[Rfam]
RNA sequence: GGUCAUGAGUGCCAGCGCGUAGCCCCGGCUUGCUGGCCGGCAACCCUUGCGUUCGCGAUGGGGUGCCCCGGGUGAGGACCGGGCCGGUGUCGCCCGACACCGGCAAAACGGCGAA
Numbered sequence: 001g002g003u004c005a006u007g008a009g010u011g012c013c014a015g016c017g018c019g020u021a022g023c024c025c026c027g028g029c030u031u032g033c034u035g036g037c038c039g040g041c042a043a044c045c046c047u048u049g050c051g052u053u054c055g056c057g058a059u060g061g062g063g064u065g066c067c068c069c070g071g072g073u074g075a076g077g078a079c080c081g082g083g084c085c086g087g088u089g090u091c092g093c094c095c096g097a098c099a100c101c102g103g104c105a106a107a108a109c110g111g112c113g114a115a
Base pairs, nucleotide, nucleotide: 001080002079003078004077009038011037012036013035014034015033016032021030022029039067040066041065044063045062046061048058050057083104084103085102086101087100088099089098090097091096
Dot-bracket structure: ((((....(.((((((....((......)).)))))))(((..(((.(.(......))..))).))).........))))..(((((((((....)))))))))...........
Rfam assigns this 115-nucleotide RNA sequence from Actinoplanes aureus to the family "SAM (S-adenosyl methionine) riboswitch aptamer". It scores 100 bits against the family's covariance model. For this family Rfam cites "The aptamer core of SAM-IV riboswitches mimics the ligand-binding site of SAM-I riboswitches" (Weinberg et al., RNA, 2008). SAM-IV is a mRNA element that regulates gene expression via direct sensing of S-adenosylmethionine (SAM or AdoMet). SAM-IV riboswitches share conserved nucleotide positions with the previously described SAM-I riboswitches sequence analysis and molecular recognition experiments suggest that SAM-I and SAM-IV riboswitches share similar ligand binding sites, but have different scaffolds.